[Rfam]
RNA sequence: CCAGACGGCUGGAUGACCGCGCGCCGCGUUCUGCGGCGGGAGGAAAGUCCGGGCUCCACGGAAAUAGGGUGCCGGGUAACGCCCGGCGGGGGCGACCCCAGGGAUAGUGCCACAGAAAGCAAACCGCCCGCGCGGCCUUCGGCCCCGCGAGGUAAGGGUGAAAGGGUGCGGUAAGAGCGCACCGCGUAACCGGCAACGGAAGCGGCACGGUAAACCCCACCCGGAGCAAAACCGAAUAGGAAGGGCAGGCCCCCUGCGGGUACAGCGCAUUUCCGCGCCGCCCUUCGGGUUGGUUGCGAGAGGUGAUCGGCAACGGUCAUCCCAGAGGAAUGGUCAUCCACGGGCCGCAAGGCCCCGGACAGAACCCGGCUUACAGGCCGUCUGGCAUC
Numbered sequence: 001c002c003a004g005a006c007g008g009c010u011g012g013a014u015g016a017c018c019g020c021g022c023g024c025c026g027c028g029u030u031c032u033g034c035g036g037c038g039g040g041a042g043g044a045a046a047g048u049c050c051g052g053g054c055u056c057c058a059c060g061g062a063a064a065u066a067g068g069g070u071g072c073c074g075g076g077u078a079a080c081g082c083c084c085g086g087c088g089g090g091g092g093c094g095a096c097c098c099c100a101g102g103g104a105u106a107g108u109g110c111c112a113c114a115g116a117a118a119g120c121a122a123a124c125c126g127c128c129c130g131c132g133c134g135g136c137c138u139u140c141g142g143c144c145c146c147g148c149g150a151g152g153u154a155a156g157g158g159u160g161a162a163a164g165g166g167u168g169c170g171g172u173a174a175g176a177g178c179g180c181a182c183c184g185c186g187u188a189a190c191c192g193g194c195a196a197c198g199g200a201a202g203c204g205g206c207a208c209g210g211u212a213a214a215c216c217c218c219a220c221c222c223g224g225a226g227c228a229a230a231a232c233c234g235a236a237u238a239g240g241a242a243g244g245g246c247a248g249g250c251c252c253c254c255u256g257c258g259g260g261u262a263c264a265g266c267g268c269a270u271u272u273c274c275g276c277g278c279c280g281c282c283c284u285u286c287g288g289g290u291u292g293g294u295u296g297c298g299a300g301a302g303g304u305g306a307u308c309g310g311c312a313a314c315g316g317u318c319a320u321c322c323c324a325g326a327g328g329a330a331u332g333g334u335c336a337u338c339c340a341c342g343g344g345c346c347g348c349a350a351g352g353c354c355c356c357g358g359a360c361a362g363a364a365c366c367c368g369g370c371u372u373a374c375a376g377g378c379c380g381u382c383u384g385g386c387a388u389c
Base pairs, nucleotide, nucleotide: 001385002384003383004382005381006380007379008378009377010376011374012338013337014336015335016334017333018332020040022038023037024036025035026034027033028032045372046371047370049369050368051367052366053365054226055225056224057223063272064271067222068221069220070219071218072086073085074084075083076082087101088099089098090097091096102217103216107215108214109211110210111209124157125156126153127152128151131149132148133147134146135145165183166182167181168180169179170178184206185204186203187202190199191198192197230295231294232293233292240286241285242284243283244282245281265278266277267276268275302321303320304319305318306317307316308315309314
Dot-bracket structure: ((((((((((((((((((.(.(((((((...))))))).)....[[[.[[[[[((((.....[[..((((((((((.....)))))(((((....)))).)((...(((((............(((((..(((((.........))))).)))..)).......((((((.......))))))((((..(((....)))..))).)..)))..)))))))))))))...((((......((((((...................((((..]]..))))..)))))).....))))......((((((((....))))))))..........)))))))..........................]]]]]]]].).))))))))))....
A member of the RNA family "Bacterial RNase P class A" from Elstera cyanobacteriorum, 389 nucleotides long. A reference for the family is Frank and Pace (1998), "Ribonuclease P: unity and diversity in a tRNA processing ribozyme", Annu Rev Biochem. It is annotated as a ribozyme.